[Rfam]
A member of the RNA family "SAM riboswitch aptamer (S box leader)" from Bacillus sp. PK3_68, 104 nucleotides long. It scores 96 bits against the family's covariance model. Lineage of the source: Bacteria > Bacillati > Bacillota > Bacilli > Bacillus. The base pairs follow the family's consensus structure, which is taken from published work.
RNA sequence: UUCUUAUCAAGAGAAGCGGAGGGACUGGCCCGAUGAUGCUUCAGCAACCGGCUACGUAAAGUCAAGGUGCUAACUCCAGCGGGUUUCAUCCCGGAAGAUGAGAG
Numbered sequence: 001u002u003c004u005u006a007u008c009a010a011g012a013g014a015a016g017c018g019g020a021g022g023g024a025c026u027g028g029c030c031c032g033a034u035g036a037u038g039c040u041u042c043a044g045c046a047a048c049c050g051g052c053u054a055c056g057u058a059a060a061g062u063c064a065a066g067g068u069g070c071u072a073a074c075u076c077c078a079g080c081g082g083g084u085u086u087c088a089u090c091c092c093g094g095a096a097g098a099u100g101a102g103a104g
Stems, first nucleotide, its partner, number of pairs: 001104008013042005021031003025079004043071004048067002050063004075096001080093004